This 57-nucleotide RNA from Sparus aurata belongs to the Rfam family "Antizyme RNA frameshifting stimulation element". Pairs were carried over by alignment from the consensus structure, which is taken from published work. This family represents a structural element which is found in antizyme mRNA and is known to promote frameshifting. Antizyme genes have have two partially overlapping open reading frames, the second, which encodes the functional protein requires +1 translational frameshifting. This frameshift is stimulated by a pseudoknot present 3' of the frameshift site in the antizyme mRNA. The frameshifting efficiency is dependent on the level of polyamines in the cell, when the polyamine concentration is high frameshifting is more likely to occur which leads to an increase in the quantity of functional antizyme produced. The match comes from Rfam's covariance-model search (42 bits).
RNA sequence: UGAUGCCCCUCUCAUCCUUGAAGAUCCCUGGUGGGUGAGGAAACGACAAGCUGGACU
Numbered sequence: 001u002g003a004u005g006c007c008c009c010u011c012u013c014a015u016c017c018u019u020g021a022a023g024a025u026c027c028c029u030g031g032u033g034g035g036u037g038a039g040g041a042a043a044c045g046a047c048a049a050g051c052u053g054g055a056c057u
Stems, first nucleotide, its partner, number of pairs: 008040003011035006023057001025055003